[Rfam]
RNA: mir-130 microRNA precursor family
Organism: Ornithorhynchus anatinus
RNA sequence: UCCAAGCCCGUGCUCUUUUCACUAAGCCAUGCUGCUUCUCUAGCUUUCCCUGUCCUAACUCGCAGAGAAGCACCAUGGCUUAGUGGAAAGAGCACGGGCUUGUGA
Numbered sequence: 001u002c003c004a005a006g007c008c009c010g011u012g013c014u015c016u017u018u019u020c021a022c023u024a025a026g027c028c029a030u031g032c033u034g035c036u037u038c039u040c041u042a043g044c045u046u047u048c049c050c051u052g053u054c055c056u057a058a059c060u061c062g063c064a065g066a067g068a069a070g071c072a073c074c075a076u077g078g079c080u081u082a083g084u085g086g087a088a089a090g091a092g093c094a095c096g097g098g099c100u101u102g103u104g105a
Stems, first nucleotide, its partner, number of pairs: 001105002005100006012093008022083009